[Rfam]
RNA: Streptococcus sRNA SpF59 (ldcC RNA)
Organism: [Clostridium] leptum
RNA sequence: UGACCAUCCCUUUUCUGAGGGACCGAAGGCCAUACGGACAGCCGGGUCAAAUGCCGA
Number, nucleotide and partner (000 for none) at each position: 001u049002g048003a047004c046005c045006a000007u000008c000009c021010c020011u019012u000013u000014u000015c000016u000017g000018a000019g011020g010021g009022a000023c000024c000025g000026a000027a000028g000029g000030c000031c000032a000033u000034a000035c000036g000037g000038a000039c000040a000041g000042c000043c000044g000045g005046g004047u003048c002049a001050a000051a000052u000053g000054c000055c000056g000057a000